[Rfam]
RNA: t44 RNA
Organism: Alginatibacterium sediminis
RNA sequence: GAAACUUUACUUUAAUCACACACACGUAUCAUUACCUCGGCCGGGGUGCUAAGGCGUUGCUUUAAACGCUGAUAGUCGGACUAGAGGGAUGCGUGGAGGCCUAAC
Numbered sequence: 001g002a003a004a005c006u007u008u009a010c011u012u013u014a015a016u017c018a019c020a021c022a023c024a025c026g027u028a029u030c031a032u033u034a035c036c037u038c039g040g041c042c043g044g045g046g047u048g049c050u051a052a053g054g055c056g057u058u059g060c061u062u063u064a065a066a067c068g069c070u071g072a073u074a075g076u077c078g079g080a081c082u083a084g085a086g087g088g089a090u091g092c093g094u095g096g097a098g099g100c101c102u103a104a105c
Stems, first nucleotide, its partner, number of pairs: 023095008035086001036084002039081001041079003048076004
Dot-bracket structure: ......................((((((((....(((.(.(((....((((.....................))))))).).)).).))))))))..........